A member of the RNA family "tRNA" from Ferrimonas marina, 74 nucleotides long.
A search with the family's covariance model found it, with a score of 58 bits.
Pairs were carried over by alignment from the consensus structure, which is taken from published work.
The source organism's lineage runs through Bacteria, Pseudomonadati, Gammaproteobacteria, Alteromonadales and Ferrimonas.
[Rfam]
RNA sequence: CGCGGCGUAGCUCAAUUGGAUAGAGCGUCCCCCUCCUAAGGGGAAGGUUGUGGGAUCGUGCCCCACCGCUGCGG
Numbered sequence: 001c002g003c004g005g006c007g008u009a010g011c012u013c014a015a016u017u018g019g020a021u022a023g024a025g026c027g028u029c030c031c032c033c034u035c036c037u038a039a040g041g042g043g044a045a046g047g048u049u050g051u052g053g054g055a056u057c058g059u060g061c062c063c064c065a066c067c068g069c070u071g072c073g074g
Stems, first nucleotide, its partner, number of pairs: 001073007010026004028044005050066005